[Rfam]
RNA sequence: AUUGAUGCAUGAUGAAACACAUGGUAAUGCUCCUGCCAGAGCAUGCUGACUUUCAGUGGUGACACAAUCCAUGCUGCCUUCCUUCUGACAACAAU
Numbered sequence: 001a002u003u004g005a006u007g008c009a010u011g012a013u014g015a016a017a018c019a020c021a022u023g024g025u026a027a028u029g030c031u032c033c034u035g036c037c038a039g040a041g042c043a044u045g046c047u048g049a050c051u052u053u054c055a056g057u058g059g060u061g062a063c064a065c066a067a068u069c070c071a072u073g074c075u076g077c078c079u080u081c082c083u084u085c086u087g088a089c090a091a092c093a094a095u
Base pairs, nucleotide, nucleotide: 001095002094003093004092
The record is a 95-nucleotide sequence from Mizuhopecten yessoensis, which matches "Small nucleolar RNA U83B" in Rfam. Pairs were carried over by alignment from the consensus structure. The match comes from Rfam's covariance-model search (42 bits). By type it is a C/D-box small nucleolar RNA. The organism belongs to Mizuhopecten, within Eukaryota. The family has 21 seed sequences and 966 matches in Rfam 15.1. About the family: U83B belongs to the C/D family of snoRNAs. U83B like U83A has no documented RNA target and they share the same host gene with the C/D box snoRNA U43 (RPL3). N.B. U83A/B/C have no sequence similarity with the U83 snoRNA that was cloned by Jady and Kiss (2000).